Record summary: The record is a 122-nucleotide RNA from Paenibacillus sp. TCA20, which matches "pan motif" in Rfam. The source organism's lineage runs through Bacteria, Bacillati, Bacilli, Paenibacillaceae and Paenibacillus.
[Rfam]
RNA sequence: GAGGCGGUAUUGAUCAAUCAUCGAACUGCACUCGUUAGUUAGUUAUCCUGAGCUUUAAACAAUUGAAUCGUAUGCCAAGUUGUUGGAUUCUGCUCUGAGCCGAAGAGGACCGAGACAGAAGG
Numbered sequence: 001g002a003g004g005c006g007g008u009a010u011u012g013a014u015c016a017a018u019c020a021u022c023g024a025a026c027u028g029c030a031c032u033c034g035u036u037a038g039u040u041a042g043u044u045a046u047c048c049u050g051a052g053c054u055u056u057a058a059a060c061a062a063u064u065g066a067a068u069c070g071u072a073u074g075c076c077a078a079g080u081u082g083u084u085g086g087a088u089u090c091u092g093c094u095c096u097g098a099g100c101c102g103a104a105g106a107g108g109a110c111c112g113a114g115a116c117a118g119a120a121g122g
Base pairs, nucleotide, nucleotide: 001033002032003031004029005028006027007026008025010024011023012022013021014020090118091117092116093114094113095112097110100108101107